Rfam assigns this 187-nucleotide sequence from Streptomyces sp. TLI_235 to the family "c-di-AMP riboswitch aptamer (ydaO/yuaA leader)". Lineage of the source: Bacteria > Actinomycetota > Actinomycetes > Kitasatosporales > Streptomyces. A search with the family's covariance model found it, with a score of 56 bits.
[Rfam]
RNA sequence: GAAUCCUGUCCGCCGCACCCGGGCCUCACGACCGAGACCAAGGACAGGGGCGGGGGAACCACGUUCGUCGCCGUCCCCACGGCUAGGGGUGAAGCCGCGUCAGCAGGGCCCCUCCUGCGGCCGCGGCCGGGCCAAGCCUCCCGGUCCGAACCCGACAGCUCACCUCGCAGGCGUUCGGAGAGGGAAA
Numbered sequence: 001g002a003a004u005c006c007u008g009u010c011c012g013c014c015g016c017a018c019c020c021g022g023g024c025c026u027c028a029c030g031a032c033c034g035a036g037a038c039c040a041a042g043g044a045c046a047g048g049g050g051c052g053g054g055g056g057a058a059c060c061a062c063g064u065u066c067g068u069c070g071c072c073g074u075c076c077c078c079a080c081g082g083c084u085a086g087g088g089g090u091g092a093a094g095c096c097g098c099g100u101c102a103g104c105a106g107g108g109c110c111c112c113u114c115c116u117g118c119g120g121c122c123g124c125g126g127c128c129g130g131g132c133c134a135a136g137c138c139u140c141c142c143g144g145u146c147c148g149a150a151c152c153c154g155a156c157a158g159c160u161c162a163c164c165u166c167g168c169a170g171g172c173g174u175u176c177g178g179a180g181a182g183g184g185a186a187a
Base pairs, nucleotide, nucleotide: 011173012172013171014170018049019048020047050168051167052166053165054164055163060086087153088152089151095126096125097124098123129147130146131145132144